[Rfam]
This 74-nucleotide sequence from Anguilla anguilla belongs to the Rfam family "mir-216 microRNA precursor family". Taxonomically the source falls in Anguilla (Eukaryota, Chordata, Euteleostomi, Teleostei). The match comes from Rfam's covariance-model search (58 bits).
RNA sequence: GGACUGGGUAAUCUCUGCAGGCAACUGUGAUGUGGAGCUUUAUCUCACAUUAACCAGCAGAGAUUCUGCGGUCU
Numbered sequence: 001g002g003a004c005u006g007g008g009u010a011a012u013c014u015c016u017g018c019a020g021g022c023a024a025c026u027g028u029g030a031u032g033u034g035g036a037g038c039u040u041u042a043u044c045u046c047a048c049a050u051u052a053a054c055c056a057g058c059a060g061a062g063a064u065u066c067u068g069c070g071g072u073c074u
Stems, first nucleotide, its partner, number of pairs: 003072004010065008021055001024051001026049005